[Rfam]
RNA: Small nucleolar RNA snoR145
RNA sequence: AUGCGAAGGUCCCAGCAGAGGGGUAAGAAACUCUAUAAAUUGAGGCCUCUCUAACAAUAAUAAAAAUUCCUUCGCAGAUUAAUUUGCCGAAUCGUAGGAUGACCGGAAUUUCUCAUGGCCGGCUAUCCGGAAACCCGGCUAAAUACUC
Dot-bracket structure: ..(((((((.(.(....).).....((...(((.(....).)))....))..................)))))))..........((((..(.....((.(.((((............)))).).)).....)..)))).........